[Rfam]
RNA: Bacterial RNase P class B
RNA sequence: AUUUUCGGGUGAUCGCGGUUUGGCUUUUUGCCAGGCUGAGGAAAGUCCAUGCUCGCACAGACUGAGAUGUCUGUAGUGUUCGUGCUUAGCGAAAAAAUAAGCUAAGGUACUUCUUAGAAGUAACGGCAGGAAAACCGGCUAAGGUGAGAGCUAUGCCCAAGUAUCCUUGAAAGUGCCACAGUGACGAAACGUUUUGGGAAACCAAAACGGUGGAACGCGGUAAACCCCUCGAGCGAGCAACCCAAACUAUGGUAGGGGCGCUUUUUGAUCGGAAAUGAACGAAGCAAAGAGGCAAUCAAUGAUUGCAGAUAGAUGAUGACCACGCCUUUCUUUCUCCCUGAGAGUGAAGGCGUACAAAACAUGGCUUAUAGAA
Numbered sequence: 001a002u003u004u005u006c007g008g009g010u011g012a013u014c015g016c017g018g019u020u021u022g023g024c025u026u027u028u029u030g031c032c033a034g035g036c037u038g039a040g041g042a043a044a045g046u047c048c049a050u051g052c053u054c055g056c057a058c059a060g061a062c063u064g065a066g067a068u069g070u071c072u073g074u075a076g077u078g079u080u081c082g083u084g085c086u087u088a089g090c091g092a093a094a095a096a097a098u099a100a101g102c103u104a105a106g107g108u109a110c111u112u113c114u115u116a117g118a119a120g121u122a123a124c125g126g127c128a129g130g131a132a133a134a135c136c137g138g139c140u141a142a143g144g145u146g147a148g149a150g151c152u153a154u155g156c157c158c159a160a161g162u163a164u165c166c167u168u169g170a171a172a173g174u175g176c177c178a179c180a181g182u183g184a185c186g187a188a189a190c191g192u193u194u195u196g197g198g199a200a201a202c203c204a205a206a207a208c209g210g211u212g213g214a215a216c217g218c219g220g221u222a223a224a225c226c227c228c229u230c231g232a233g234c235g236a237g238c239a240a241c242c243c244a245a246a247c248u249a250u251g252g253u254a255g256g257g258g259c260g261c262u263u264u265u266u267g268a269u270c271g272g273a274a275a276u277g278a279a280c281g282a283a284g285c286a287a288a289g290a291g292g293c294a295a296u297c298a299a300u301g302a303u304u305g306c307a308g309a310u311a312g313a314u315g316a317u318g319a320c321c322a323c324g325c326c327u328u329u330c331u332u333u334c335u336c337c338c339u340g341a342g343a344g345u346g347a348a349g350g351c352g353u354a355c356a357a358a359a360c361a362u363g364g365c366u367u368a369u370a371g372a373a
Stems, first nucleotide, its partner, number of pairs: 004373003007369001008321003012317003016038006043367003047364005052237005057074006080232003084228001085106006107124001108122006125227002128167004137157003143152003173225002175221003190209008241257003261291007292306006323352007331344003